[Rfam]
RNA sequence: GCUGUAUGCCCGUCUUGGGCGUUUCCUCCCUAAACUCGGGCCGUGCUUGUCACGGCCCCUUUUUUUGCUCGCU
Numbered sequence: 001g002c003u004g005u006a007u008g009c010c011c012g013u014c015u016u017g018g019g020c021g022u023u024u025c026c027u028c029c030c031u032a033a034a035c036u037c038g039g040g041c042c043g044u045g046c047u048u049g050u051c052a053c054g055g056c057c058c059c060u061u062u063u064u065u066u067g068c069u070c071g072c073u
Base pairs, nucleotide, nucleotide: 008020009019010018011017038058039057040056041055042054043053044052045051